[Rfam]
RNA sequence: GGAGUCAGUCGUGUGAAUUGAUCGUUGCACAUGUAGCCGACCCAGCGGUGAUCGGGGGUAACCCCGGCGUCGAAGCCUGGGAAGGCGAACGCGUGAGCCGUAGCGAAAGCGAACUUGAUUCAGCCUCGUUACACAAGCCGAGGGCGGCCAGCCUAUCGGAUAUGAUGAAGCCAGCACUUGUCGGGAAGGAACGGUCAUAAGCACCGGCAAGGCCCUCCGGGGUAACAAGAGAC
Number, nucleotide and partner (000 for none) at each position: 001g000002g000003a000004g000005u000006c000007a000008g000009u000010c033011g032012u031013g030014u029015g000016a000017a000018u000019u200020g000021a198022u000023c000024g000025u000026u000027g000028c000029a014030c013031a012032u011033g010034u000035a000036g086037c085038c084039g000040a000041c081042c080043c079044a000045g076046c072047g071048g070049u069050g068051a000052u067053c066054g065055g064056g063057g062058g000059u000060a000061a000062c057063c056064c055065c054066g053067g052068c050069g049070u048071c047072g046073a000074a000075g000076c045077c000078u000079g043080g042081g041082a000083a000084g038085g037086c036087g000088a000089a000090c000091g000092c000093g000094u000095g000096a000097g000098c000099c000100g000101u000102a000103g000104c000105g000106a000107a000108a000109g000110c000111g000112a000113a000114c000115u000116u000117g000118a000119u000120u227121c000122a000123g223124c222125c221126u220127c219128g218129u000130u000131a000132c000133a000134c000135a000136a000137g000138c000139c000140g217141a216142g215143g214144g213145c212146g172147g171148c170149c000150a000151g166152c000153c164154u000155a000156u000157c000158g000159g000160a000161u000162a000163u000164g153165a000166u151167g000168a000169a000170g148171c147172c146173a000174g000175c000176a000177c211178u210179u209180g208181u207182c206183g205184g204185g000186a000187a000188g000189g000190a000191a000192c000193g000194g000195u000196c000197a000198u021199a000200a019201g000202c000203a000204c184205c183206g182207g181208c180209a179210a178211g177212g145213c144214c143215c142216u141217c140218c128219g127220g126221g125222g124223u123224a000225a000226c000227a120228a000229g000230a000231g000232a000233c000

A member of the RNA family "Group II catalytic intron D1-D4-6" from Kiritimatiella glycovorans, 233 nucleotides long. It scores 74 bits against the family's covariance model. Gene Ontology term of the family: Group II intron splicing.